Overview: MIR530 microRNA precursor family: a 189-nucleotide RNA from Rhamnella rubrinervis. Gene Ontology terms of the family: RISC complex and miRNA-mediated post-transcriptional gene silencing.

[Rfam]
Nucleotides: 189
Stems, first nucleotide, its partner, number of pairs: 002188004007183003012180002015177013029163011
Number, partner (000 for none) and nucleotide at each position: 001000u002188c003187c004186a005185a006000u007183a008182u009181g010000u011000u012180g013179c014000c015177u016176u017175u018174a019173c020172c021171u022170g023169c024168a025167u026166u027165u028000g029163u030162a031161c032160c033159u034158g035157c036156a037155c038154c039153u040000g041000a042000c043000c044000u045000u046000a047000g048000u049000u050000u051000a052000u053000u054000g055000g056000u057000u058000g059000g060000u061000u062000u063000u064000g065000g066000u067000u068000c069000u070000u071000u072000u073000u074000c075000g076000a077000a078000a079000c080000c081000a082000a083000a084000g085000c086000u087000u088000c089000g090000a091000g092000g093000c094000c095000u096000g097000g098000c099000g100000a101000u102000g103000g104000a105000g106000g107000g108000c109000u110000u111000a112000a113000g114000a115000a116000g117000g118000c119000a120000a121000c122000u123000g124000a125000u126000c127000a128000a129000c130000a131000u132000a133000a134000a135000a136000u137000g138000a139000a140000g141000g142000a143000a144000c145000u146000a147000a148000g149000a150000a151000a152000g153039a154038g155037g156036u157035g158034c159033a160032g161031g162030u163029g164000a165027a166026g167025a168024u169023g170022c171021a172020g173019g174018u175017g176016a177015a178000u179013g180012c181009c182008a183007u184000c185005u186004u187003g188002g189000u